[Rfam]
RNA sequence: UGUCAGUAGCAUAACUCCCUCACAACGGGCCAGCUGAAUAACUGUAUUUCUUCCUGGCCGUAUUGAGGGAGAGAAAAAUGUUUUCC
Number, nucleotide and partner (000 for none) at each position: 001u000002g000003u000004c000005a000006g000007u000008a000009g000010c000011a000012u000013a000014a000015c071016u070017c069018c068019c067020u066021c065022a064023c000024a000025a061026c060027g000028g059029g058030c057031c056032a055033g054034c000035u000036g050037a049038a048039u000040a000041a000042c000043u000044g000045u000046a000047u000048u038049u037050c036051u000052u000053c000054c033055u032056g031057g030058c029059c028060g026061u025062a000063u000064u022065g021066a020067g019068g018069g017070a016071g015072a000073g000074a000075a000076a000077a000078a000079u000080g000081u000082u000083u000084u000085c000086c000

A member of the RNA family "mir-4899 microRNA precursor family" from Branchiostoma lanceolatum, 86 nucleotides long. Rfam 15.1 lists 7 matches to the family in 3 species. Taxonomically the source falls in Branchiostoma (Eukaryota, Eumetazoa, Cephalochordata, Leptocardii). The base pairs follow the family's consensus structure, which was predicted with RNAalifold.